[Rfam]
RNA: ssNA-helicase RNA
Organism: Anaerocolumna jejuensis
RNA sequence: UGCGCUAAGUCUAGUAUUACCUUAGCGCACUUCUGUCGCAUGUCGCA
Numbered sequence: 001u002g003c004g005c006u007a008a009g010u011c012u013a014g015u016a017u018u019a020c021c022u023u024a025g026c027g028c029a030c031u032u033c034u035g036u037c038g039c040a041u042g043u044c045g046c047a
Stems, first nucleotide, its partner, number of pairs: 001029009